[Rfam]
RNA sequence: GUCCUGGUCGGUAACCAGGACGCGAUGGUAAGGAG
Numbered sequence: 001g002u003c004c005u006g007g008u009c010g011g012u013a014a015c016c017a018g019g020a021c022g023c024g025a026u027g028g029u030a031a032g033g034a035g
Base pairs, nucleotide, nucleotide: 001021002020003019004018005017006016007015008014
This 35-nucleotide RNA sequence from Enorma timonensis belongs to the Rfam family "L31-Coriobacteria ribosomal protein leader".
Taxonomically the source falls in Enorma (Bacteria, Bacillati, Actinomycetota, Coriobacteriaceae).
It is annotated as a cis-regulatory leader.
The sequence is in the family's curated seed alignment.